Actino-pnp RNA: a 62-nucleotide RNA from Streptomyces aurantiacus. The organism belongs to Streptomyces, within Bacteria. Rfam classes the family as a cis-regulatory element.
Nucleotides: 062
Base pairs, nucleotide, nucleotide: 001062002061003060004059005058006057007056009054010053011052012051013050017046018045019044021042022041023040024039025038026037027036
Number, partner (000 for none) and nucleotide at each position: 001062g002061c003060c004059g005058g006057u007056c008000c009054u010053c011052g012051g013050u014000a015000g016000u017046g018045g019044c020000c021042c022041c023040c024039g025038g026037g027036g028000a029000a030000u031000g032000u033000g034000a035000g036027c037026c038025c039024c040023g041022g042021g043000a044019g045018c046017u047000u048000c049000g050013a051012u052011c053010g054009a055000a056007g057006a058005c059004c060003g061002g062001c